[Rfam]
RNA: small Cajal body-specific RNA 17
Organism: Castor canadensis
RNA sequence: CUCCUGUGUCCCCCAUGCAGUCCCCUGUGAGCCCGCAGUAUUUUCCUUAUAUGAUCAGGCCCCGCUUGGGCGGCGCUGCUCGCCUGGAGCCUGAGAGGAUUAUAAAACGUGACAGGCGACGUGGGACCAGGGGACCCGGGG
Numbered sequence: 001c002u003c004c005u006g007u008g009u010c011c012c013c014c015a016u017g018c019a020g021u022c023c024c025c026u027g028u029g030a031g032c033c034c035g036c037a038g039u040a041u042u043u044u045c046c047u048u049a050u051a052u053g054a055u056c057a058g059g060c061c062c063c064g065c066u067u068g069g070g071c072g073g074c075g076c077u078g079c080u081c082g083c084c085u086g087g088a089g090c091c092u093g094a095g096a097g098g099a100u101u102a103u104a105a106a107a108c109g110u111g112a113c114a115g116g117c118g119a120c121g122u123g124g125g126a127c128c129a130g131g132g133g134a135c136c137c138g139g140g141g
Stems, first nucleotide, its partner, number of pairs: 001141003005138002008135006020127005055094006061087002067082006